RNA: ROOL RNA
RNA sequence: AAUUUCAACCAAUCUUUUAAAUAACUUGGUGAAGAUAGGUUGACACCUUGCCAAGGUUGCAUGCGUAAAUCUCGUCUUGUUUGAUAUGGGAUACUGUAUCAGGAUAAGAGAUCAUCAAUUAGGUGACUGAGAGAUGUUGCGAUAUGAGAGAGUAGCAAGAGUGCAUGCAACGUGGAGAUUAUACGUACCUAGACCAACAUCAAACGGUGGCGGCGAUAAUAGACGCUCUCAGUGAGAGAAUAAUCUAGCGAGGCCUUGCGUAGCAGCAAGAACUGACCUAGAAUAGCUAAAAUAAGCCGUUAUGCGCUACAGUAGGCUAUCAGCCUAUGAUGACACCAAAGAUGUGUACAAGUAGCCCAAAUGCGCAGAUAAAAUCAGACCAAUAUGCUAAAUUGAUUAUCUGAAUGUCGGGUGAAAGUUGGAGGUAACCAGUCCUGCCUAGCCAUCAAAACGCUAAAGAAGUUAGUGGGUAGCUCCUGCUGGCUCAGACUUUAGUCGGCUAUCGGUUAAUAAGUUGCGUAUGUUUGAAGCAGAGCGAAGGUUCGUUUAGAAGAUUGAUUGAAA
Numbered sequence: 001a002a003u004u005u006c007a008a009c010c011a012a013u014c015u016u017u018u019a020a021a022u023a024a025c026u027u028g029g030u031g032a033a034g035a036u037a038g039g040u041u042g043a044c045a046c047c048u049u050g051c052c053a054a055g056g057u058u059g060c061a062u063g064c065g066u067a068a069a070u071c072u073c074g075u076c077u078u079g080u081u082u083g084a085u086a087u088g089g090g091a092u093a094c095u096g097u098a099u100c101a102g103g104a105u106a107a108g109a110g111a112u113c114a115u116c117a118a119u120u121a122g123g124u125g126a127c128u129g130a131g132a133g134a135u136g137u138u139g140c141g142a143u144a145u146g147a148g149a150g151a152g153u154a155g156c157a158a159g160a161g162u163g164c165a166u167g168c169a170a171c172g173u174g175g176a177g178a179u180u181a182u183a184c185g186u187a188c189c190u191a192g193a194c195c196a197a198c199a200u201c202a203a204a205c206g207g208u209g210g211c212g213g214c215g216a217u218a219a220u221a222g223a224c225g226c227u228c229u230c231a232g233u234g235a236g237a238g239a240a241u242a243a244u245c246u247a248g249c250g251a252g253g254c255c256u257u258g259c260g261u262a263g264c265a266g267c268a269a270g271a272a273c274u275g276a277c278c279u280a281g282a283a284u285a286g287c288u289a290a291a292a293u294a295a296g297c298c299g300u301u302a303u304g305c306g307c308u309a310c311a312g313u314a315g316g317c318u319a320u321c322a323g324c325c326u327a328u329g330a331u332g333a334c335a336c337c338a339a340a341g342a343u344g345u346g347u348a349c350a351a352g353u354a355g356c357c358c359a360a361a362u363g364c365g366c367a368g369a370u371a372a373a374a375u376c377a378g379a380c381c382a383a384u385a386u387g388c389u390a391a392a393u394u395g396a397u398u399a400u401c402u403g404a405a406u407g408u409c410g411g412g413u414g415a416a417a418g419u420u421g422g423a424g425g426u427a428a429c430c431a432g433u434c435c436u437g438c439c440u441a442g443c444c445a446u447c448a449a450a451a452c453g454c455u456a457a458a459g460a461a462g463u464u465a466g467u468g469g470g471u472a473g474c475u476c477c478u479g480c481u482g483g484c485u486c487a488g489a490c491u492u493u494a495g496u497c498g499g500c501u502a503u504c505g506g507u508u509a510a511u512a513a514g515u516u517g518c519g520u521a522u523g524u525u526u527g528a529a530g531c532a533g534a535g536c537g538a539a540g541g542u543u544c545g546u547u548u549a550g551a552a553g554a555u556u557g558a559u560u561g562a563a564a
Stems, first nucleotide, its partner, number of pairs: 008560001012556001015553004020548002025055005037048004058169006075111004081102009113136004119130004141156001143154003180545001190514001195506001197345004206337004210300005226238004244282005253273001255270003261289004303367005312328005349418001355413004360408001400489004422438001424436002440502003453497001455495001457493003462485001464482007533544004